The family of this 52-nucleotide RNA from Salmonella enterica is "PyrC leader". The sequence is in the family's curated seed alignment. The organism belongs to Salmonella enterica subsp. enterica serovar Alachua, within Bacteria. On this family, see Turnbough and Switzer, Microbiol Mol Biol Rev 2008: "Regulation of pyrimidine biosynthetic gene expression in bacteria: repression without repressors". The base pairs follow the family's consensus structure, which is taken from published work. Gene Ontology term of the family: regulation of gene expression. By type it is a cis-regulatory leader.

[Rfam]
RNA sequence: UAUCCUUUGUUUCCGGCAAAAAGACUUUUCCUCAGCCGGAGCUUAUUAAUGA
Number, nucleotide and partner (000 for none) at each position: 001u000002a000003u000004c000005c000006u000007u000008u000009g000010u000011u000012u000013c039014c038015g037016g036017c035018a000019a000020a000021a000022a000023g000024a000025c000026u000027u000028u000029u000030c000031c000032u000033c000034a000035g017036c016037c015038g014039g013040a000041g000042c000043u000044u000045a000046u000047u000048a000049a000050u000051g000052a000